Small nucleolar RNA SNORA32: a 116-nucleotide RNA sequence from Cricetulus griseus. It scores 66 bits against the family's covariance model. The base pairs follow the family's consensus structure, which was predicted with RNAfold.

Nucleotides: 116
Base pairs, nucleotide, nucleotide: 003050004049006047007046010043011042012041023038024037025036064108065107066106070102071101072100073099081094
Number, partner (000 for none) and nucleotide at each position: 001000u002000g003050g004049u005000c006047a007046u008000u009000a010043c011042c012041a013000a014000g015000g016000u017000u018000u019000a020000a021000g022000a023038a024037u025036g026000c027000u028000u029000u030000c031000u032000c033000a034000a035000u036025c037024a038023u039000u040000g041012u042011g043010g044000g045000c046007a047006u048000c049004a050003u051000c052000a053000u054000g055000a056000a057000a058000a059000a060000a061000u062000u063000a064108c065107c066106a067000c068000u069000a070102g071101g072100c073099u074000u075000c076000c077000g078000u079000c080000a081094a082000g083000u084000a085000c086000c087000u088000c089000u090000c091000u092000a093000g094081u095000g096000a097000u098000c099073a100072g101071c102070c103000u104000a105000u106066u107065g108064g109000g110000a111000a112000c113000a114000c115000u116000u